[Rfam]
RNA sequence: CGAAAUCGAAUAUGCAUGCCGUAGACAGUAGGUGCCAUAUGCGCUUAAUUUCCUACCGAGGUGUUAUGAUAUAAUGUUUAUUAUACCGCUGCGUACAUACGCGUCGGAUAGAUGAACGAUCAUGGCCUUCGCUCGGUUGCGGAGGCCUUUCUCAUGCAUCGG
Numbered sequence: 001c002g003a004a005a006u007c008g009a010a011u012a013u014g015c016a017u018g019c020c021g022u023a024g025a026c027a028g029u030a031g032g033u034g035c036c037a038u039a040u041g042c043g044c045u046u047a048a049u050u051u052c053c054u055a056c057c058g059a060g061g062u063g064u065u066a067u068g069a070u071a072u073a074a075u076g077u078u079u080a081u082u083a084u085a086c087c088g089c090u091g092c093g094u095a096c097a098u099a100c101g102c103g104u105c106g107g108a109u110a111g112a113u114g115a116a117c118g119a120u121c122a123u124g125g126c127c128u129u130c131g132c133u134c135g136g137u138u139g140c141g142g143a144g145g146c147c148u149u150u151c152u153c154a155u156g157c158a159u160c161g162g
Stems, first nucleotide, its partner, number of pairs: 028056005034044002124147009
RNA: Ribosomal protein L10 leader